[Rfam]
Shown here is a 106-nucleotide RNA from Macaca mulatta, a member of the family "mir-2968 microRNA precursor family". Gene Ontology terms of the family: miRNA-mediated post-transcriptional gene silencing and RISC complex. The base pairs follow the family's consensus structure, which is taken from published work.
RNA sequence: GCUACCCUGCGAGACGUUGUCCUCCAGGUCGCUCUGGCAGCCCUCGUCGUUGAGCGAGUUCUGCUUGAUGACCUUGGGCGACAGCAGCUUGACCAAGUCGGUGAGC
Numbered sequence: 001g002c003u004a005c006c007c008u009g010c011g012a013g014a015c016g017u018u019g020u021c022c023u024c025c026a027g028g029u030c031g032c033u034c035u036g037g038c039a040g041c042c043c044u045c046g047u048c049g050u051u052g053a054g055c056g057a058g059u060u061c062u063g064c065u066u067g068a069u070g071a072c073c074u075u076g077g078g079c080g081a082c083a084g085c086a087g088c089u090u091g092a093c094c095a096a097g098u099c100g101g102u103g104a105g106c
Base pairs, nucleotide, nucleotide: 001106002105003104006097008095009094011090012089013088016085017084018083020081021080022078023077024076026074027073028072029071030070031069033067036065037064038063039062040061043058044057045056046055047054